Shown here is a 152-nucleotide sequence from Neptunicoccus cionae, a member of the family "Ruegeria cis2 sRNA". Lineage of the source: Bacteria > Pseudomonadati > Pseudomonadota > Paracoccaceae > Neptunicoccus. The literature on the family includes a 2016 paper in Front Microbiol by Rivers et al., "Experimental Identification of Small Non-Coding RNAs in the Model Marine Bacterium Ruegeria pomeroyi DSS-3". A search with the family's covariance model found it, with a score of 61 bits.

[Rfam]
RNA sequence: GUGGUUUUAUGGGGCGUAUAAUUCACAAAAGCCGCGCCGCGGGCCUGAUCAAUGGUGUGAAACAGCGGGUUCCAUGUGAAGAAAGCAAGCGUGCUGGCAGGCAGGGCAUUGGCCAAAAACAUCUUGCCGCUGAAAAUCAUAUUCGCCCGCUU
Number, nucleotide and partner (000 for none) at each position: 001g000002u034003g033004g032005u000006u031007u030008u029009a000010u000011g000012g024013g023014g022015c000016g000017u000018a000019u000020a000021a000022u014023u013024c012025a000026c000027a000028a000029a008030a007031g006032c004033c003034g002035c000036g056037c055038c054039g053040c000041g050042g049043g000044c000045c000046u000047g000048a000049u042050c041051a000052a000053u039054g038055g037056u036057g000058u000059g000060a000061a000062a000063c000064a151065g150066c149067g148068g000069g000070u080071u079072c078073c000074a000075u000076g000077u000078g072079a071080a070081g000082a000083a000084a000085g146086c145087a000088a143089g142090c000091g140092u139093g138094c000095u000096g000097g000098c132099a000100g000101g128102c126103a125104g124105g123106g122107c000108a000109u118110u117111g000112g000113c000114c000115a000116a000117a110118a109119a000120c000121a000122u106123c105124u104125u103126g102127c000128c101129g000130c000131u000132g098133a000134a000135a000136a000137u000138c093139a092140u091141a000142u089143u088144c000145g086146c085147c000148c067149g066150c065151u064152u000